[Rfam]
RNA: RT-18 RNA
Nucleotides: 082
Base pairs, nucleotide, nucleotide: 001012002011003010004009020073021072022071023070031067032066033065034064035063036062037061043056044055045052046051
Number, partner (000 for none) and nucleotide at each position: 001012c002011a003010c004009c005000g006000c007000u008000u009004g010003g011002u012001g013000a014000a015000a016000a017000u018000a019000u020073u021072g022071c023070c024000g025000u026000c027000a028000g029000g030000a031067c032066a033065g034064g035063g036062u037061u038000u039000a040000g041000u042000a043056a044055g045052c046051c047000g048000a049000a050000a051046g052045g053000a054000u055044u056043u057000g058000a059000a060000a061037g062036a063035c064034c065033u066032u067031g068000c069000a070023g071022g072021c073020a074000a075000a076000c077000a078000a079000g080000g081000a082000c